[Rfam]
RNA sequence: CGCGGAGGACGGCCUCUCCAUUCUGGCGACAAUCCGGGACGACCCGG
Numbered sequence: 001c002g003c004g005g006a007g008g009a010c011g012g013c014c015u016c017u018c019c020a021u022u023c024u025g026g027c028g029a030c031a032a033u034c035c036g037g038g039a040c041g042a043c044c045c046g047g
Base pairs, nucleotide, nucleotide: 002019004017005016006015007014008013034047035046036045037044038043